Rfam assigns this 191-nucleotide sequence from Sphingobium cupriresistens to the family "Manganese Mn2+ riboswitch aptamer (yybP-ykoY)". The match comes from Rfam's covariance-model search (51 bits). Taxonomically the source falls in Sphingobium cupriresistens (Bacteria, Pseudomonadota, Alphaproteobacteria, Sphingobiaceae). Rfam 15.1 lists 1,126 matches to the family in 1,062 species. The base pairs follow the family's consensus structure.
RNA sequence: UAGCGCGUCAUCUGGGGAGUAGCCAGCCGUUCCGUGUCAGGAACGGGCCAUGCGUCAACAUAUUCGGCCGAGAGGUCGUGGCGUAUGGGAGGCGGCGAAAAGCCGCAUCGGGCGAGACCAAUGGCAUCGGCGCUUAUCUGUCCGGCCGGGCGGGAGGCGACGGUGGCAUUGCGUCUGUUUCACUUCCGCCC
Numbered sequence: 001u002a003g004c005g006c007g008u009c010a011u012c013u014g015g016g017g018a019g020u021a022g023c024c025a026g027c028c029g030u031u032c033c034g035u036g037u038c039a040g041g042a043a044c045g046g047g048c049c050a051u052g053c054g055u056c057a058a059c060a061u062a063u064u065c066g067g068c069c070g071a072g073a074g075g076u077c078g079u080g081g082c083g084u085a086u087g088g089g090a091g092g093c094g095g096c097g098a099a100a101a102g103c104c105g106c107a108u109c110g111g112g113c114g115a116g117a118c119c120a121a122u123g124g125c126a127u128c129g130g131c132g133c134u135u136a137u138c139u140g141u142c143c144g145g146c147c148g149g150g151c152g153g154g155a156g157g158c159g160a161c162g163g164u165g166g167c168a169u170u171g172c173g174u175c176u177g178u179u180u181c182a183c184u185u186c187c188g189c190c191c
Stems, first nucleotide, its partner, number of pairs: 027046003048088010065078005091190005